[Rfam]
RNA sequence: CUGGCUCCGGUUCACGUCCCGCACUCCUGCCGGGCGACCCGGAGCA
Numbered sequence: 001c002u003g004g005c006u007c008c009g010g011u012u013c014a015c016g017u018c019c020c021g022c023a024c025u026c027c028u029g030c031c032g033g034g035c036g037a038c039c040c041g042g043a044g045c046a
Stems, first nucleotide, its partner, number of pairs: 004045002007042004015036005021030003